This 124-nucleotide RNA sequence from Loxodonta africana belongs to the Rfam family "Small nucleolar RNA SNORD22". Its family is annotated with nucleolus and RNA processing in the Gene Ontology. Pairs were carried over by alignment from the consensus structure, which was predicted with PFOLD. For this family Rfam cites "Requirement for intron-encoded U22 small nucleolar RNA in 18S ribosomal RNA maturation" (Tycowski et al., Science, 1994). The organism belongs to Loxodonta, within Eukaryota.
RNA sequence: UCCCAGUGAGGAAACACUGACACGUCUUCCCUCCUGUCCUGGUCCCAGAGCCUGUAAAGGCGAGCCCAUUGGGGCUGGCUGGGGGGAAGAGGAGAGCUUAUUCCAGAAGGAACGUCUGAGGGGU
Numbered sequence: 001u002c003c004c005a006g007u008g009a010g011g012a013a014a015c016a017c018u019g020a021c022a023c024g025u026c027u028u029c030c031c032u033c034c035u036g037u038c039c040u041g042g043u044c045c046c047a048g049a050g051c052c053u054g055u056a057a058a059g060g061c062g063a064g065c066c067c068a069u070u071g072g073g074g075c076u077g078g079c080u081g082g083g084g085g086g087a088a089g090a091g092g093a094g095a096g097c098u099u100a101u102u103c104c105a106g107a108a109g110g111a112a113c114g115u116c117u118g119a120g121g122g123g124u
Base pairs, nucleotide, nucleotide: 001123002122003121004120